[Rfam]
RNA sequence: CCUCGAACAAGGCACGCAUGGCAGGAGCGGGGGACCCAAGGUAAGUCGCCGAACCGGUGUGAACCGGGACGGCUUGGGGUGAAGCCGCAUUCCUGCGGCCGGGCAUCUCCCGCCCGAACCCGACAGCUCACCUCGUAGGCGUCGGAGAGGACUA
Numbered sequence: 001c002c003u004c005g006a007a008c009a010a011g012g013c014a015c016g017c018a019u020g021g022c023a024g025g026a027g028c029g030g031g032g033g034a035c036c037c038a039a040g041g042u043a044a045g046u047c048g049c050c051g052a053a054c055c056g057g058u059g060u061g062a063a064c065c066g067g068g069a070c071g072g073c074u075u076g077g078g079g080u081g082a083a084g085c086c087g088c089a090u091u092c093c094u095g096c097g098g099c100c101g102g103g104c105a106u107c108u109c110c111c112g113c114c115c116g117a118a119c120c121c122g123a124c125a126g127c128u129c130a131c132c133u134c135g136u137a138g139g140c141g142u143c144g145g146a147g148a149g150g151a152c153u154a
Stems, first nucleotide, its partner, number of pairs: 001025002027136006037076004077121003085098004101115004
RNA: c-di-AMP riboswitch aptamer (ydaO/yuaA leader)